[Rfam]
RNA sequence: CUCUGGAGAGCUACGCCCCAGGCGUGGCACCGAUGGAGUAACCCUCGCGAGAGGGGCAUCUCUCAGGUACGUGGACAGAG
Numbered sequence: 001c002u003c004u005g006g007a008g009a010g011c012u013a014c015g016c017c018c019c020a021g022g023c024g025u026g027g028c029a030c031c032g033a034u035g036g037a038g039u040a041a042c043c044c045u046c047g048c049g050a051g052a053g054g055g056g057c058a059u060c061u062c063u064c065a066g067g068u069a070c071g072u073g074g075a076c077a078g079a080g
Base pairs, nucleotide, nucleotide: 001080002079003078004077005076011027012026013025014024029068030067031066032064033063036062037061038060042055043054
A member of the RNA family "Glycine riboswitch aptamer" from Chloroflexia bacterium SDU3-3, 80 nucleotides long.